[Rfam]
RNA: Guanidine-II riboswitch aptamer (mini-ykkC)
RNA sequence: GGCGGAGGACGGCCUCCCCCAUCAUGGGCCAAUCUGCCGGGACGACCCGG
Numbered sequence: 001g002g003c004g005g006a007g008g009a010c011g012g013c014c015u016c017c018c019c020c021a022u023c024a025u026g027g028g029c030c031a032a033u034c035u036g037c038c039g040g041g042a043c044g045a046c047c048c049g050g
Base pairs, nucleotide, nucleotide: 001020002019004017005016006015007014008013037050038049039048040047041046